RNA sequence: GCCAUGGGGAAGCGAUCUCCCCAUGAGGCGACAGCCGAAGAAUCGCGCCCGCACAAACUUAAGGGGCGCAUUAUG
Number, nucleotide and partner (000 for none) at each position: 001g000002c000003c000004a000005u023006g022007g021008g020009g019010a018011a000012g000013c000014g000015a000016u000017c000018u010019c009020c008021c007022c006023a005024u000025g000026a000027g000028g000029c000030g000031a000032c000033a000034g000035c000036c000037g000038a000039a000040g000041a000042a000043u000044c000045g069046c068047g067048c066049c065050c064051g000052c000053a000054c000055a000056a000057a000058c000059u000060u000061a000062a000063g000064g050065g049066g048067c047068g046069c045070a000071u000072u000073a000074u000075g000
Shown here is a 75-nucleotide sequence, a member of the family "chrB-a RNA". Pairs were carried over by alignment from the consensus structure, which is taken from published work. It is annotated as a cis-regulatory element. The sequence is in the family's curated seed alignment.